Rfam assigns this 115-nucleotide sequence from Flavobacterium croceum to the family "SAM riboswitch aptamer (S box leader)". Rfam's curators write: The SAM riboswitch is found upstream of a number of genes which code for proteins involved in methionine or cysteine biosynthesis in Gram-positive bacteria. The match comes from Rfam's covariance-model search (73 bits).

[Rfam]
Nucleotides: 115
Stems, first nucleotide, its partner, number of pairs: 003113006013043005021032003026079004044071004049067002051063004075107001080104008
Number, partner (000 for none) and nucleotide at each position: 001000u002000u003113g004112u005111u006110a007109u008108c009000a010000c011000g012000a013043a014042a015041g016040c017039u018000g019000g020000a021032g022031g023030g024000a025000a026079u027078a028077g029076a030023c031022c032021c033000u034000g035000u036000g037000a038000a039017a040016g041015c042014u043013u044071a045070g046069c047068a048000a049067c050066c051063c052062u053061a054060u055000u056000u057000u058000u059000u060054a061053u062052a063051g064000a065000a066050g067049g068047u069046g070045c071044u072000a073000c074000a075107u076029u077028c078027u079026a080104a081103u082102c083101u084100u085099u086098a087097u088000a089000c090000c091000g092000a093000u094000u095000u096000a097087a098086u099085a100084a101083a102082g103081a104080u105000a106000c107075a108008g109007a110006u111005a112004a113003c114000u115000u